[Rfam]
Nucleotides: 138
Base pairs, nucleotide, nucleotide: 001138002137003136004135005134006133007132008131010129011128012127013126014125016123017122019120020119021118022117023116024115025114026113027112029110030109031108032107034105035104036103038101039100040099042097043096044095045094046093047092048091050089052087053086054085055084057082058081059080060079062075063074064073065072
Number, partner (000 for none) and nucleotide at each position: 001138g002137c003136g004135a005134g006133a007132g008131u009000u010129c011128g012127c013126u014125u015000c016123g017122c018000c019120u020119a021118c022117c023116a024115a025114g026113c027112g028000u029110a030109c031108c032107a033000a034105c035104g036103c037000c038101g039100c040099a041000u042097u043096g044095u045094a046093g047092c048091a049000a050089a051000c052087g053086a054085g055084g056000a057082g058081u059080c060079c061000a062075a063074g064073g065072u066000g067000g068000c069000g070000c071000a072065g073064c074063c075062u076000c077000u078000c079060g080059g081058g082057c083000c084055u085054c086053u087052c088000a089050u090000u091048u092047g093046c094045u095044g096043c097042g098000c099040u100039g101038c102000a103036g104035c105034g106000c107032u108031g109030g110029u111000u112027c113026g114025c115024u116023u117022g118021g119020u120019a121000c122017g123016c124000c125014g126013a127012g128011c129010g130000c131008a132007c133006u134005c135004u136003u137002g138001c
Rfam assigns this 138-nucleotide RNA from Phytophthora ramorum to the family "MIR8788 microRNA precursor family". Rfam's curators put it in the seed alignment. The source organism's lineage runs through Eukaryota, Sar, Oomycota, Peronosporaceae and Phytophthora.